[Rfam]
RNA sequence: UCGGUUCCGGUUCACGCCGAUACCUCCACUUCGGGGAGGGGCGACCCGGGGCC
Numbered sequence: 001u002c003g004g005u006u007c008c009g010g011u012u013c014a015c016g017c018c019g020a021u022a023c024c025u026c027c028a029c030u031u032c033g034g035g036g037a038g039g040g041g042c043g044a045c046c047c048g049g050g051g052c053c
Stems, first nucleotide, its partner, number of pairs: 003053003007049004015043004023039005
Annotation
Shown here is a 53-nucleotide sequence, a member of the family "L31-Actinobacteria ribosomal protein leader". The sequence is in the family's curated seed alignment.